[Rfam]
RNA sequence: AAUAAUGAAUUUGGCAAGAUGUCGGAAUAGCUGAGAGCACAAAAUCAUAAAUUCCAGAAUUUCUAUUUUUGUGUAUUUUUUAUGAGUAUCAGCGGCUAUGCCUCAUCUAGUCAAUUGCAUUAGUU
Numbered sequence: 001a002a003u004a005a006u007g008a009a010u011u012u013g014g015c016a017a018g019a020u021g022u023c024g025g026a027a028u029a030g031c032u033g034a035g036a037g038c039a040c041a042a043a044a045u046c047a048u049a050a051a052u053u054c055c056a057g058a059a060u061u062u063c064u065a066u067u068u069u070u071g072u073g074u075a076u077u078u079u080u081u082a083u084g085a086g087u088a089u090c091a092g093c094g095g096c097u098a099u100g101c102c103u104c105a106u107c108u109a110g111u112c113a114a115u116u117g118c119a120u121u122a123g124u125u
Base pairs, nucleotide, nucleotide: 005120006119007118009116011114012113013112014111015110017108018107019106020105021104024102025101027099028098029097030096031095032094033093